[Rfam]
RNA sequence: GCGAUGAGCUGAAUUGUGUAAGUCGGUGAUCACGCCUAACGGCAGCGAACUAUGUGGAGUUUGGAUCAUCCGCCUCAAUUUUUUGCAAGUGGGCUUCCAUAGGAAAUGGGAGCC
Numbered sequence: 001g002c003g004a005u006g007a008g009c010u011g012a013a014u015u016g017u018g019u020a021a022g023u024c025g026g027u028g029a030u031c032a033c034g035c036c037u038a039a040c041g042g043c044a045g046c047g048a049a050c051u052a053u054g055u056g057g058a059g060u061u062u063g064g065a066u067c068a069u070c071c072g073c074c075u076c077a078a079u080u081u082u083u084u085g086c087a088a089g090u091g092g093g094c095u096u097c098c099a100u101a102g103g104a105a106a107u108g109g110g111a112g113c114c
Base pairs, nucleotide, nucleotide: 014078015077016076018074024072025071026070027068028067029066030065031064034043035042046063047062049060050059051058092114093113094112095111096110097109098108099107100106
The record is a 114-nucleotide sequence from Rossellomorea aquimaris, which matches "BsrF" in Rfam. On this family, see Saito et al., Gene 2008: "Novel small RNA-encoding genes in the intergenic regions of Bacillus subtilis". The organism belongs to Rossellomorea, within Bacteria.